[Rfam]
RNA sequence: CAAUAAUAACAGGGAGCUCACAGUAGUGGGCUGAGAGUAAGCUGAUACUGCUUAGACCUUUAACCUGAUUUAGGUAAUGCUAACGUAGGGAGAUAGUUGAUGAUUUUG
Numbered sequence: 001c002a003a004u005a006a007u008a009a010c011a012g013g014g015a016g017c018u019c020a021c022a023g024u025a026g027u028g029g030g031c032u033g034a035g036a037g038u039a040a041g042c043u044g045a046u047a048c049u050g051c052u053u054a055g056a057c058c059u060u061u062a063a064c065c066u067g068a069u070u071u072a073g074g075u076a077a078u079g080c081u082a083a084c085g086u087a088g089g090g091a092g093a094u095a096g097u098u099g100a101u102g103a104u105u106u107u108g
Base pairs, nucleotide, nucleotide: 005097007095008094011059012058013057016031017030018029019028020027038054039053040052041051042050064089065088066087067086070083071082072081073080

Shown here is a 108-nucleotide RNA sequence from Hespellia stercorisuis, a member of the family "TPP riboswitch aptamer (THI element)". The family has 115 seed sequences and 16,130 matches in Rfam 15.1. Rfam links the family to the GO term thiamine pyrophosphate binding.